[Rfam]
RNA: Bacterial RNase P class A
RNA sequence: AGAGUCGACCAGACGGUCGCGUUCGGUCGCCAACGGUGACCGGCCGAGGAACGUCCGGACUCCGAAGGGCACGGUGGUGGCUAACGGCCACCCGGGGCGACCCGCGGGAAAGUGCCACAGAGAGAAGACCGCCGACCGCGGCAUUACGUCGUGGUCGGUCAGGGUGAAAGGGUGGUGUAAGAGACCACCAGCGGCCUGGGUGACCAGGUCGGCUAGGUAAACCCCACCGGGAGCAAGUCCGAAUAUGCGUGCGUUCGACGGCGGCCCGCCGGAGCACGCGGGUAGGGCGCUUGAGCCAGUCGGCAACGGCUGGCCUAGAUGGAUGACCGUCGCCCACGCACGGGCAACUGUGUGCGGGAACAGAAUCCGGCGUAUCGGUCGACUCUUCCC
Numbered sequence: 001a002g003a004g005u006c007g008a009c010c011a012g013a014c015g016g017u018c019g020c021g022u023u024c025g026g027u028c029g030c031c032a033a034c035g036g037u038g039a040c041c042g043g044c045c046g047a048g049g050a051a052c053g054u055c056c057g058g059a060c061u062c063c064g065a066a067g068g069g070c071a072c073g074g075u076g077g078u079g080g081c082u083a084a085c086g087g088c089c090a091c092c093c094g095g096g097g098c099g100a101c102c103c104g105c106g107g108g109a110a111a112g113u114g115c116c117a118c119a120g121a122g123a124g125a126a127g128a129c130c131g132c133c134g135a136c137c138g139c140g141g142c143a144u145u146a147c148g149u150c151g152u153g154g155u156c157g158g159u160c161a162g163g164g165u166g167a168a169a170g171g172g173u174g175g176u177g178u179a180a181g182a183g184a185c186c187a188c189c190a191g192c193g194g195c196c197u198g199g200g201u202g203a204c205c206a207g208g209u210c211g212g213c214u215a216g217g218u219a220a221a222c223c224c225c226a227c228c229g230g231g232a233g234c235a236a237g238u239c240c241g242a243a244u245a246u247g248c249g250u251g252c253g254u255u256c257g258a259c260g261g262c263g264g265c266c267c268g269c270c271g272g273a274g275c276a277c278g279c280g281g282g283u284a285g286g287g288c289g290c291u292u293g294a295g296c297c298a299g300u301c302g303g304c305a306a307c308g309g310c311u312g313g314c315c316u317a318g319a320u321g322g323a324u325g326a327c328c329g330u331c332g333c334c335c336a337c338g339c340a341c342g343g344g345c346a347a348c349u350g351u352g353u354g355c356g357g358g359a360a361c362a363g364a365a366u367c368c369g370g371c372g373u374a375u376c377g378g379u380c381g382a383c384u385c386u387u388c389c390c
Stems, first nucleotide, its partner, number of pairs: 001386010011375001012331007020046002023043006051373003055370005060233004067267004072229005077091005092106001093104004107224002112222002114218003129163002131159012171189006191213001192211008237288004247279006259271004295314008